Glycine riboswitch aptamer: an 89-nucleotide RNA sequence from Variovorax gossypii. Rfam links the family to the GO term glycine biosynthetic process. Pairs were carried over by alignment from the consensus structure. The match comes from Rfam's covariance-model search (36 bits). The source organism's lineage runs through Bacteria, Pseudomonadati, Pseudomonadota, Betaproteobacteria and Variovorax.
RNA sequence: UUGCGCAUUGCAGGAGAGCGGGCCACUCUGGUGGCCCUACCGAAGGCGCAAACUCCCAUAAACGCUCAGGUCGGCCCGACGAAGUCUUG
Numbered sequence: 001u002u003g004c005g006c007a008u009u010g011c012a013g014g015a016g017a018g019c020g021g022g023c024c025a026c027u028c029u030g031g032u033g034g035c036c037c038u039a040c041c042g043a044a045g046g047c048g049c050a051a052a053c054u055c056c057c058a059u060a061a062a063c064g065c066u067c068a069g070g071u072c073g074g075c076c077c078g079a080c081g082a083a084g085u086c087u088u089g
Stems, first nucleotide, its partner, number of pairs: 011089003020037004039071003042067002046065003052059001